[Rfam]
RNA sequence: UAAUGCACAAAGUUGUUGCCGAAGACAGCAGGUGGCGUUAGCCGUAAAGAGAUUUAUCUCUACCAGCCGAGGACGAUUAAGUAUUUAUCGACUAAUCAAACCUCUAUGUCUUUAUGGGCAUAGAGGUUUUUUUAUUACUUU
Numbered sequence: 001u002a003a004u005g006c007a008c009a010a011a012g013u014u015g016u017u018g019c020c021g022a023a024g025a026c027a028g029c030a031g032g033u034g035g036c037g038u039u040a041g042c043c044g045u046a047a048a049g050a051g052a053u054u055u056a057u058c059u060c061u062a063c064c065a066g067c068c069g070a071g072g073a074c075g076a077u078u079a080a081g082u083a084u085u086u087a088u089c090g091a092c093u094a095a096u097c098a099a100a101c102c103u104c105u106a107u108g109u110c111u112u113u114a115u116g117g118g119c120a121u122a123g124a125g126g127u128u129u130u131u132u133u134a135u136u137a138c139u140u141u
Stems, first nucleotide, its partner, number of pairs: 028067002031064003034043003101126010
This 141-nucleotide RNA from Pseudobutyrivibrio xylanivorans belongs to the Rfam family "Ribosomal protein L10 leader". The source organism's lineage runs through Bacteria, Clostridia, Lachnospirales, Pseudobutyrivibrio and Pseudobutyrivibrio xylanivorans. The family's consensus secondary structure was predicted with CMfinder. The match comes from Rfam's covariance-model search (74 bits).